[Rfam]
RNA sequence: CGAAAAACCAGCGUCAGUUGGCGCUGGCAGGGACUUCAAUUUGACCGACAAAUACCGUGCAGGGUCGGUAAAGCGGGCGACGCGUUGCGUCGAAAGGGACCUGGGGCGGUGGUAAAAAGGUUCACGCCCUGCAACUAAUGUGGGCCGAUUUUAUGCAGGGUUUUAUAGAUCGUCAACACUAUGAAAUCUUAAAUUUAUAACUAUUUGUAA
Numbered sequence: 001c002g003a004a005a006a007a008c009c010a011g012c013g014u015c016a017g018u019u020g021g022c023g024c025u026g027g028c029a030g031g032g033a034c035u036u037c038a039a040u041u042u043g044a045c046c047g048a049c050a051a052a053u054a055c056c057g058u059g060c061a062g063g064g065u066c067g068g069u070a071a072a073g074c075g076g077g078c079g080a081c082g083c084g085u086u087g088c089g090u091c092g093a094a095a096g097g098g099a100c101c102u103g104g105g106g107c108g109g110u111g112g113u114a115a116a117a118a119g120g121u122u123c124a125c126g127c128c129c130u131g132c133a134a135c136u137a138a139u140g141u142g143g144g145c146c147g148a149u150u151u152u153a154u155g156c157a158g159g160g161u162u163u164u165a166u167a168g169a170u171c172g173u174c175a176a177c178a179c180u181a182u183g184a185a186a187u188c189u190u191a192a193a194u195u196u197a198u199a200a201c202u203a204u205u206u207g208u209a210a
Base pairs, nucleotide, nucleotide: 008027009026010025011024012023013022014021045112046111047110049108053070054069055068056067057066079091080090081089082088083087139178140177141176144173145172147170150169151168152167153166